[Rfam]
A member of the RNA family "Small nucleolar RNA SNORA30/SNORA37 family" from Hipposideros armiger, 129 nucleotides long. The source organism's lineage runs through Eukaryota, Deuterostomia, Amniota, Boreoeutheria and Hipposideros. Rfam describes the family as follows. The members of this family belong to the H/ACA class of snoRNAs that guide the sites of modification of uridines to pseudouridines. This family includes human ACA30 (SNORA30), ACA37 (SNORA37) and the mouse homolog MBI-26. Both ACA37 and ACA30 are predicted to guide the pseudouridylation of residue U4643 of 28S rRNA. Pairs were carried over by alignment from the consensus structure, which was predicted with RNAfold. By type it is an H/ACA-box small nucleolar RNA.
RNA sequence: UGAGCAUUUUCACAGGUCCUCCCCCAGGCAGUGAGGACAGGACUUGGUAGCUGGUGCUGAAAGAAAACCCUUGAUUGCAUCCUUGCCCUGGGCCUGUGCCAGUGGCAGCUUUCACUCAAUGGGACAGAU
Numbered sequence: 001u002g003a004g005c006a007u008u009u010u011c012a013c014a015g016g017u018c019c020u021c022c023c024c025c026a027g028g029c030a031g032u033g034a035g036g037a038c039a040g041g042a043c044u045u046g047g048u049a050g051c052u053g054g055u056g057c058u059g060a061a062a063g064a065a066a067a068c069c070c071u072u073g074a075u076u077g078c079a080u081c082c083u084u085g086c087c088c089u090g091g092g093c094c095u096g097u098g099c100c101a102g103u104g105g106c107a108g109c110u111u112u113c114a115c116u117c118a119a120u121g122g123g124a125c126a127g128a129u
Stems, first nucleotide, its partner, number of pairs: 003058006013046003017042004022036002025033001068123003071119004076114002079112001083108005088102004
It scores 130 bits against the family's covariance model.